A member of the RNA family "UnaL2 LINE 3' element" from Coregonus sp. 'balchen', 54 nucleotides long.
RNA sequence: UGCGCACAUGAAUGUAAAUCCCUUUGGAUAAAAGCGUCUGCUAACUGGCGUAUU
Numbered sequence: 001u002g003c004g005c006a007c008a009u010g011a012a013u014g015u016a017a018a019u020c021c022c023u024u025u026g027g028a029u030a031a032a033a034g035c036g037u038c039u040g041c042u043a044a045c046u047g048g049c050g051u052a053u054u
Base pairs, nucleotide, nucleotide: 013043014041015040016039020036022034023033024032025031

The source organism's lineage runs through Eukaryota, Teleostomi, Euteleostomi, Salmonidae and Coregonus. The base pairs follow the family's consensus structure, which is taken from published work. The family's RNA type in Rfam is cis-regulatory element.